[Rfam]
RNA sequence: GGCUAGUCCAAAGGUAGAGAGUUAUCUCAGUUGAGUGUUCAUAGUCAGUUACAGAUCAAACUCCUGUUCCACUCUUUCUCCCCUUCUCACUGCUGCACUUGACUAAUCUUUA
Number, nucleotide and partner (000 for none) at each position: 001g108002g107003c000004u105005a104006g103007u102008c101009c000010a100011a099012a000013g000014g096015u095016a091017g090018a000019g088020a087021g086022u000023u000024a000025u000026c000027u000028c000029a000030g000031u000032u000033g074034a073035g072036u000037g070038u000039u000040c000041a000042u000043a000044g000045u000046c000047a000048g000049u000050u000051a000052c000053a000054g000055a000056u000057c000058a000059a000060a000061c000062u000063c000064c000065u000066g000067u000068u000069c000070c037071a000072c035073u034074c033075u000076u000077u000078c000079u000080c000081c000082c000083c000084u000085u000086c021087u020088c019089a000090c017091u016092g000093c000094u000095g015096c014097a000098c000099u011100u010101g008102a007103c006104u005105a004106a000107u002108c001109u000110u000111u000112a000
RNA: Y RNA
Organism: Theropithecus gelada